RNA sequence: UACAAAGAGCGAAUGGUGGAUGCCUUGGGUAGUAAAGGCGAUGAAGGACGUACUAGACUGCGAUAAGCUAUGGAGAGCUGUCAAGAAGCUUUGACCCAUAGAUUUCCGAAUGGGGCAACCCAAUGUAUAGAGAUAUACAUUACCAUAAUGGAGCGAACGAGGGGAAUUGAAACAUCUUAGUACCCUCAGGAAAAGAAAUCAAUAGAGAUUAUGUCAGUAGCGGCGAGCGAAAGCGUAAGAGGGCAAACCUAGUGCUUGCACUAGGGGUUGUAGGACUGCAAUAUGCACGAACUAAGCUUAGCAGAAUAUUCUGGAAAGUUUAAUCAUAGAGGGUGAUAAUCCCGUAUGCGAAAAGCAAAGUUUAGCUAGCAGUAUCCUGAGUAGGGCGAAACACGUGAAAUUUUGUCUGAAUCCGGGUCGACCACGAUCCAACCCUAAAUACUCAUACUACACCGAUAGCGAACAAGUACCGUGAGGGAAAGGUGAAAAGAACGGCGGUGAGCCGAGUGAAAUAGAACCUGAAACCAUUUGCUUACAAU
Numbered sequence: 001u002a003c004a005a006a007g008a009g010c011g012a013a014u015g016g017u018g019g020a021u022g023c024c025u026u027g028g029g030u031a032g033u034a035a036a037g038g039c040g041a042u043g044a045a046g047g048a049c050g051u052a053c054u055a056g057a058c059u060g061c062g063a064u065a066a067g068c069u070a071u072g073g074a075g076a077g078c079u080g081u082c083a084a085g086a087a088g089c090u091u092u093g094a095c096c097c098a099u100a101g102a103u104u105u106c107c108g109a110a111u112g113g114g115g116c117a118a119c120c121c122a123a124u125g126u127a128u129a130g131a132g133a134u135a136u137a138c139a140u141u142a143c144c145a146u147a148a149u150g151g152a153g154c155g156a157a158c159g160a161g162g163g164g165a166a167u168u169g170a171a172a173c174a175u176c177u178u179a180g181u182a183c184c185c186u187c188a189g190g191a192a193a194a195g196a197a198a199u200c201a202a203u204a205g206a207g208a209u210u211a212u213g214u215c216a217g218u219a220g221c222g223g224c225g226a227g228c229g230a231a232a233g234c235g236u237a238a239g240a241g242g243g244c245a246a247a248c249c250u251a252g253u254g255c256u257u258g259c260a261c262u263a264g265g266g267g268u269u270g271u272a273g274g275a276c277u278g279c280a281a282u283a284u285g286c287a288c289g290a291a292c293u294a295a296g297c298u299u300a301g302c303a304g305a306a307u308a309u310u311c312u313g314g315a316a317a318g319u320u321u322a323a324u325c326a327u328a329g330a331g332g333g334u335g336a337u338a339a340u341c342c343c344g345u346a347u348g349c350g351a352a353a354a355g356c357a358a359a360g361u362u363u364a365g366c367u368a369g370c371a372g373u374a375u376c377c378u379g380a381g382u383a384g385g386g387c388g389a390a391a392c393a394c395g396u397g398a399a400a401u402u403u404u405g406u407c408u409g410a411a412u413c414c415g416g417g418u419c420g421a422c423c424a425c426g427a428u429c430c431a432a433c434c435c436u437a438a439a440u441a442c443u444c445a446u447a448c449u450a451c452a453c454c455g456a457u458a459g460c461g462a463a464c465a466a467g468u469a470c471c472g473u474g475a476g477g478g479a480a481a482g483g484u485g486a487a488a489a490g491a492a493c494g495g496c497g498g499u500g501a502g503c504c505g506a507g508u509g510a511a512a513u514a515g516a517a518c519c520u521g522a523a524a525c526c527a528u529u530u531g532c533u534u535a536c537a538a539u
Stems, first nucleotide, its partner, number of pairs: 007534010022519001023483002027454002029451006036443002038154002046107003049062003068101006077089003112121003122141007143151003158189001159187005169176002199206002209439001210237005220228002240436004248265007272378003276372004289363005296356004301349003307322002311318001325329001331343003384408008415430005470477002493505004
The record is a 539-nucleotide part of an RNA from Campylobacter sp. MIT 12-5580, which matches "Bacterial large subunit ribosomal RNA" in Rfam. The base pairs follow the family's consensus structure, which is taken from published work. Gene Ontology terms of the family: ribosome and structural constituent of ribosome. A search with the family's covariance model found it, with a score of 2849 bits.